RNA sequence: UGUGUGGGACGACCUACACAUUCUCUCCAUGUGUGGGACGACCUA
Numbered sequence: 001u002g003u004g005u006g007g008g009a010c011g012a013c014c015u016a017c018a019c020a021u022u023c024u025c026u027c028c029a030u031g032u033g034u035g036g037g038a039c040g041a042c043c044u045a
Stems, first nucleotide, its partner, number of pairs: 001020008034045004
A member of the RNA family "Guanidine-II riboswitch aptamer (mini-ykkC)" from Python bivittatus, 45 nucleotides long. It scores 35 bits against the family's covariance model. NCBI's taxonomy places the organism under Eukaryota, Opisthokonta, Unidentata, Toxicofera, Python. On this family, see Sherlock et al., Biochemistry 2017: "Biochemical Validation of a Second Guanidine Riboswitch Class in Bacteria".